Rhizobiales sRNA Atu_At1: a 108-nucleotide RNA sequence from Rhizobium sp. P32RR-XVIII. Lineage of the source: Bacteria > Pseudomonadati > Alphaproteobacteria > Rhizobiaceae > Rhizobium. The family's consensus secondary structure was predicted with CMfinder.
RNA sequence: GAGCGCGCCGUGUCAACCGGACAUGACAGGGAUAGUGAACGCGGCGAUUUUUUCGGUUUCUCGCUGCGGCCAACGACACGGCAGACGAGCGCCCAACCUGUCCGGCAC
Numbered sequence: 001g002a003g004c005g006c007g008c009c010g011u012g013u014c015a016a017c018c019g020g021a022c023a024u025g026a027c028a029g030g031g032a033u034a035g036u037g038a039a040c041g042c043g044g045c046g047a048u049u050u051u052u053u054c055g056g057u058u059u060c061u062c063g064c065u066g067c068g069g070c071c072a073a074c075g076a077c078a079c080g081g082c083a084g085a086c087g088a089g090c091g092c093c094c095a096a097c098c099u100g101u102c103c104g105g106c107a108c
Base pairs, nucleotide, nucleotide: 007106008105009104011023012022013021014020025102026101027100028099029098030097035092036091037090040068041067042066043065044064045063046062069082070081071080